[Rfam]
This 127-nucleotide sequence from Erinaceus europaeus belongs to the Rfam family "Small nucleolar RNA SNORA3/SNORA45 family".
By type it is an H/ACA-box small nucleolar RNA.
A search with the family's covariance model found it, with a score of 68 bits.
About the family: The members of this family belong to the H/ACA class of snoRNAs which are thought to guide the sites of modification of uridines to pseudouridines.
For this family Rfam cites "RNomics: an experimental approach that identifies 201 candidates for novel, small, non-messenger RNAs in mouse" (Huttenhofer et al., EMBO J, 2001).
The base pairs follow the family's consensus structure, which was predicted with RNAalifold.

RNA sequence: GGCGAGGCUGGAGUCUCGCCCGGACAUGGUGUUGCACCGGCGUGCUAGAGUCCUUGGAGAGCAGCCGCUGGCCUUAUUCACUGGCUGCGGCCCCGUGGCCGAGCCGGUCACCAGGCAAGGGACAAGC
Number, nucleotide and partner (000 for none) at each position: 001g000002g000003c056004g055005a054006g053007g051008c050009u049010g000011g000012a046013g045014u000015c044016u000017c042018g041019c040020c039021c000022g000023g000024a000025c034026a033027u000028g000029g000030u000031g000032u000033u026034g025035c000036a000037c000038c000039g020040g019041c018042g017043u000044g015045c013046u012047a000048g000049a009050g008051u007052c000053c006054u005055u004056g003057g000058a000059g000060a000061g000062c000063a000064g000065c000066c000067g000068c119069u118070g000071g116072c115073c114074u113075u000076a000077u000078u000079c000080a108081c107082u106083g105084g104085c000086u102087g000088c101089g100090g099091c098092c000093c000094c000095g000096u000097g000098g091099c090100c089101g088102a086103g000104c084105c083106g082107g081108u080109c000110a000111c000112c000113a074114g073115g072116c071117a000118a069119g068120g000121g000122a000123c000124a000125a000126g000127c000